[Rfam]
RNA sequence: UAAACCGGUCGUAUCUCCAAAAGAGAUAUGAAAGGAGGUGAUGGUUUUGAGUUACCUUUUCGAGCUCUUACUUAGUGUCCUGGCAAAUGUAUUGGCCUAUUUCAUUUGCAAAUGGCUAGACGCUAAGGACAAAAGCGAUAGCUAGCCUGUAAACACCCGUUAAAUCUAAUUAGAUACGUCAAAAAAUCCCAAGAGAACGGCCAUUCUCUUGGGAUUUGGUGUAGUUUUAAG
Numbered sequence: 001u002a003a004a005c006c007g008g009u010c011g012u013a014u015c016u017c018c019a020a021a022a023g024a025g026a027u028a029u030g031a032a033a034g035g036a037g038g039u040g041a042u043g044g045u046u047u048u049g050a051g052u053u054a055c056c057u058u059u060u061c062g063a064g065c066u067c068u069u070a071c072u073u074a075g076u077g078u079c080c081u082g083g084c085a086a087a088u089g090u091a092u093u094g095g096c097c098u099a100u101u102u103c104a105u106u107u108g109c110a111a112a113u114g115g116c117u118a119g120a121c122g123c124u125a126a127g128g129a130c131a132a133a134a135g136c137g138a139u140a141g142c143u144a145g146c147c148u149g150u151a152a153a154c155a156c157c158c159g160u161u162a163a164a165u166c167u168a169a170u171u172a173g174a175u176a177c178g179u180c181a182a183a184a185a186a187u188c189c190c191a192a193g194a195g196a197a198c199g200g201c202c203a204u205u206c207u208c209u210u211g212g213g214a215u216u217u218g219g220u221g222u223a224g225u226u227u228u229a230a231g
Base pairs, nucleotide, nucleotide: 005035006034009031010030011029012028013027016024017023037170039168040166041165049067050066051065052064053062081162082161083160084159088155089154090153093108094107095106114147115146116145117144118143119142121141124138127136172228173227174226176222177221180218181217182216186215187214188213189212190211191210192209193208194207195206196205197204

Streptococcus sRNA SpF66: a 231-nucleotide RNA from Streptococcus agalactiae. By type it is a small RNA. Rfam 15.1 lists 46 matches to the family in 45 species.